[Rfam]
RNA sequence: CGGUUUAGAGGUUGAAAAGUAUCCCGCUCCAACGCGCCGUAUUUAUGACGGGCCGAGAAAUGUGGGCGACUGCGGGUCCCACCUAAACUG
Numbered sequence: 001c002g003g004u005u006u007a008g009a010g011g012u013u014g015a016a017a018a019g020u021a022u023c024c025c026g027c028u029c030c031a032a033c034g035c036g037c038c039g040u041a042u043u044u045a046u047g048a049c050g051g052g053c054c055g056a057g058a059a060a061u062g063u064g065g066g067c068g069a070c071u072g073c074g075g076g077u078c079c080c081a082c083c084u085a086a087a088c089u090g
Stems, first nucleotide, its partner, number of pairs: 001090008011033004023076005035057001037051003062082005